Annotation:
A member of the RNA family "mir-7 microRNA precursor family" from Atractosteus spatula, 92 nucleotides long. The source organism's lineage runs through Eukaryota, Opisthokonta, Neopterygii, Semionotiformes and Atractosteus. Rfam's curators write: This family represents the microRNA (miRNA) precursor mir-7. Gene Ontology terms of the family: miRNA-mediated post-transcriptional gene silencing and RISC complex. It scores 79 bits against the family's covariance model. For this family Rfam cites "microRNAs: tiny regulators with great potential" (Ambros, Cell, 2001).

RNA sequence: UGCCCAAGUGCUGAGUGGAAGACUAGUGAUUUUGUUGUUUUUGAACUGAUAAAAAGGACAACAAGUCAUAGUCUACCACCCAGCACUGGGAG
Numbered sequence: 001u002g003c004c005c006a007a008g009u010g011c012u013g014a015g016u017g018g019a020a021g022a023c024u025a026g027u028g029a030u031u032u033u034g035u036u037g038u039u040u041u042u043g044a045a046c047u048g049a050u051a052a053a054a055a056g057g058a059c060a061a062c063a064a065g066u067c068a069u070a071g072u073c074u075a076c077c078a079c080c081c082a083g084c085a086c087u088g089g090g091a092g
Base pairs, nucleotide, nucleotide: 003090004089005088006087008086009085011083012082013081015079016078017077018076020074021073022072023071024070026069027068028067029066030065031064032063034062035061036060037059038058039057
Dot-bracket structure: ..((((.((.(((.((((.(((((.(((((((.((((((.................)))))))))))))))))).)))).))).))))))..